Overview: The record is a 67-nucleotide RNA sequence from Phocaeicola coprophilus, which matches "Bacteroidetes FopS (family of paralogous sRNAs)" in Rfam. About the family: The RNA-binding protein RbpB and BTncRNA_FopS sRNA are involved in the post-transcription regulation of polysaccharide utilisation loci (PUL). FopS sRNAs function as post-transcriptional repressors by binding to the vicinity of the start codon of the first mRNA of target PUL polycistrons, typically corresponding to the cognate SusC homolog, impeding translation of the respective glycan transporter. Pairs were carried over by alignment from the consensus structure, which is taken from published work.
[Rfam]
RNA sequence: GUGUUUUUCAUAGUAUUAGAUUUAAGGUUAACAAAGGUUGGAGUACAGCGGUACUCCUUUUUUUUUG
Numbered sequence: 001g002u003g004u005u006u007u008u009c010a011u012a013g014u015a016u017u018a019g020a021u022u023u024a025a026g027g028u029u030a031a032c033a034a035a036g037g038u039u040g041g042a043g044u045a046c047a048g049c050g051g052u053a054c055u056c057c058u059u060u061u062u063u064u065u066u067g
Base pairs, nucleotide, nucleotide: 040057041056042055043054044053045052046051
Notes:
On this family, see Ruttiger et al., Nat Commun 2025: "The global RNA-binding protein RbpB is a regulator of polysaccharide utilization in Bacteroides thetaiotaomicron". Its family is annotated with sRNA-mediated gene silencing in the Gene Ontology. Taxonomically the source falls in Phocaeicola coprophilus (Bacteria, Bacteroidota, Bacteroidales, Phocaeicola).